[Rfam]
RNA sequence: GGUAGCCAUAAAUUACAAAUGGAUUGAGGGUAGGGCUACUAACAACACGAACCGUUUGGGAAGCUGCAUCAUACAAUCCGCCAAAGAACAUUGCUUUUGCAGCUAAUAGUAACGCUCCAGCGCCUAAGAACAGCAGAUGAUGUCCUAAGAUGAAGCCCAACUUCUUCGGAUCGUUCCA
Number, nucleotide and partner (000 for none) at each position: 001g000002g000003u000004a000005g000006c000007c000008a000009u000010a000011a000012a000013u000014u000015a000016c000017a000018a000019a000020u000021g000022g000023a000024u000025u000026g000027a000028g000029g000030g000031u000032a000033g000034g000035g000036c000037u000038a000039c000040u000041a000042a000043c000044a000045a000046c000047a000048c000049g000050a000051a000052c000053c000054g000055u000056u000057u000058g000059g000060g000061a000062a000063g000064c000065u000066g000067c000068a000069u000070c000071a000072u000073a000074c000075a000076a000077u000078c000079c000080g000081c000082c000083a000084a000085a000086g000087a000088a000089c000090a000091u000092u000093g000094c000095u000096u000097u000098u000099g000100c000101a000102g000103c000104u000105a000106a000107u000108a000109g000110u000111a000112a000113c000114g000115c000116u000117c000118c000119a000120g000121c000122g000123c000124c000125u000126a000127a000128g000129a000130a000131c000132a000133g000134c000135a000136g175137a174138u173139g172140a171141u170142g000143u000144c169145c168146u000147a166148a165149g000150a000151u000152g000153a000154a000155g000156c000157c000158c000159a000160a000161c000162u000163u000164c000165u148166u147167c000168g145169g144170a141171u140172c139173g138174u137175u136176c000177c000178a000

Antisense RNA which regulates isiA expression: a 178-nucleotide RNA from Mastigocoleus testarum. The literature on the family includes a 2006 paper in Proc Natl Acad Sci U S A by Duhring et al., "An internal antisense RNA regulates expression of the photosynthesis gene isiA". A search with the family's covariance model found it, with a score of 118 bits.